[Rfam]
RNA sequence: AUAAAAGCCUUGACGAGAAAUAGUAGUUAGUUACGGCGUCGUAGGGACGGGUGUCACCGAUUGAAAGCACCCUGGCGACCAAGAUUGACGAAUUCACUCUCUGAGCUGAAAUUGGGCGUUUGUGUAAACAAAUAAUUUUCCGGUAUCCCGACCGUUAUGACGGGUAGUGAGUGUGCAUAGUGACUACUAUGCAAACAAGGGUGGUACCGCGAUGACCUCGUCCCUUUU
Numbered sequence: 001a002u003a004a005a006a007g008c009c010u011u012g013a014c015g016a017g018a019a020a021u022a023g024u025a026g027u028u029a030g031u032u033a034c035g036g037c038g039u040c041g042u043a044g045g046g047a048c049g050g051g052u053g054u055c056a057c058c059g060a061u062u063g064a065a066a067g068c069a070c071c072c073u074g075g076c077g078a079c080c081a082a083g084a085u086u087g088a089c090g091a092a093u094u095c096a097c098u099c100u101c102u103g104a105g106c107u108g109a110a111a112u113u114g115g116g117c118g119u120u121u122g123u124g125u126a127a128a129c130a131a132a133u134a135a136u137u138u139u140c141c142g143g144u145a146u147c148c149c150g151a152c153c154g155u156u157a158u159g160a161c162g163g164g165u166a167g168u169g170a171g172u173g174u175g176c177a178u179a180g181u182g183a184c185u186a187c188u189a190u191g192c193a194a195a196c197a198a199g200g201g202u203g204g205u206a207c208c209g210c211g212a213u214g215a216c217c218u219c220g221u222c223c224c225u226u227u228u
Stems, first nucleotide, its partner, number of pairs: 007106002015101004026089006037077003049072006108139007141154003174193007198225004209221004

The record is a 228-nucleotide sequence from Lactiplantibacillus plantarum, which matches "T-box leader" in Rfam. NCBI's taxonomy places the organism under Bacteria, Bacillati, Lactobacillaceae, Lactiplantibacillus, Lactiplantibacillus plantarum. By type it is a cis-regulatory leader. The match comes from Rfam's covariance-model search (96 bits). From the family's description: Uncharged tRNA acts as the effector for transcription antitermination of genes in the T-box leader family. T-boxes are found upstream of many aminoacyl-tRNA synthetase genes and some amino acid biosynthetic genes usually in Gram-positive bacteria. The anticodon of a specific tRNA base pairs to a specifier sequence within the T-box motif, and the NCCA acceptor tail of the tRNA base pairs to a conserved bulge in the T-box antiterminator hairpin.